[Rfam]
RNA sequence: CCUGCCACCGUGCCUGUCCUGAAUCCUGUGGCUGGUACAUUCCAGUGGUGAGCUGAGAGGAAGCCCCAGUCUAGGAAGCAGACCUCCCCUGCUGGUGGGGAUGCCUGUGCCGAAAGGCUGGGGACAAAC
Numbered sequence: 001c002c003u004g005c006c007a008c009c010g011u012g013c014c015u016g017u018c019c020u021g022a023a024u025c026c027u028g029u030g031g032c033u034g035g036u037a038c039a040u041u042c043c044a045g046u047g048g049u050g051a052g053c054u055g056a057g058a059g060g061a062a063g064c065c066c067c068a069g070u071c072u073a074g075g076a077a078g079c080a081g082a083c084c085u086c087c088c089c090u091g092c093u094g095g096u097g098g099g100g101a102u103g104c105c106u107g108u109g110c111c112g113a114a115a116g117g118c119u120g121g122g123g124a125c126a127a128a129c
Stems, first nucleotide, its partner, number of pairs: 005048004010043001018035002021032001023029001064122003068119001070116001072114001074111002079107003083103001087099003
About this RNA
The family of this 129-nucleotide sequence from Semnornis frantzii is "Small nucleolar RNA SNORA65". It scores 86 bits against the family's covariance model.